[Rfam]
RNA sequence: UCGUGAGCGAUUGCGAAUCUGAAGGAAGUCCGUGGGCAAAUCUCUGGUCUGACGAACAGAAAUCAUAUCAGGCAAUUAUUAUGGAUAAGGCUGCACAACAAGUUGAAGUCCAAUAACUACUCGGGAAAUAAUAAUUGUAAAUAUGGCAGAUACAUGGAGAGGAAGAUUGUGCU
Numbered sequence: 001u002c003g004u005g006a007g008c009g010a011u012u013g014c015g016a017a018u019c020u021g022a023a024g025g026a027a028g029u030c031c032g033u034g035g036g037c038a039a040a041u042c043u044c045u046g047g048u049c050u051g052a053c054g055a056a057c058a059g060a061a062a063u064c065a066u067a068u069c070a071g072g073c074a075a076u077u078a079u080u081a082u083g084g085a086u087a088a089g090g091c092u093g094c095a096c097a098a099c100a101a102g103u104u105g106a107a108g109u110c111c112a113a114u115a116a117c118u119a120c121u122c123g124g125g126a127a128a129u130a131a132u133a134a135u136u137g138u139a140a141a142u143a144u145g146g147c148a149g150a151u152a153c154a155u156g157g158a159g160a161g162g163a164a165g166a167u168u169g170u171g172c173u
Base pairs, nucleotide, nucleotide: 001016002015003014004013005012006011028173030171037165041160042159043158044157045156046155047151048150049149050148051147063146064145065144066143067142072138073137074136076134077133078132079131080130081129082128083111084110085109086108089104090103091102092101
RNA: Group II catalytic intron D1-D4-3